[Rfam]
RNA sequence: AAUAAAAGCUAGGGGAGCUAUGAUUGGAUAGCUGAGAAGUAAAGCCAUAACUUUCAGACUCUAAGAACCUGAUUAAGAUAAUUCUUACGUAGGGAAGCUCGUAUAUUUUAAU
Numbered sequence: 001a002a003u004a005a006a007a008g009c010u011a012g013g014g015g016a017g018c019u020a021u022g023a024u025u026g027g028a029u030a031g032c033u034g035a036g037a038a039g040u041a042a043a044g045c046c047a048u049a050a051c052u053u054u055c056a057g058a059c060u061c062u063a064a065g066a067a068c069c070u071g072a073u074u075a076a077g078a079u080a081a082u083u084c085u086u087a088c089g090u091a092g093g094g095a096a097g098c099u100c101g102u103a104u105a106u107u108u109u110a111a112u
Base pairs, nucleotide, nucleotide: 007099008098009097010096011062012061013060014059017032018031019030020029021028039055041053042052068093069092070091071090074087075086076085077084
The family of this 112-nucleotide RNA from Romboutsia hominis is "TPP riboswitch aptamer (THI element)". The family's consensus secondary structure is taken from published work. A search with the family's covariance model found it, with a score of 70 bits.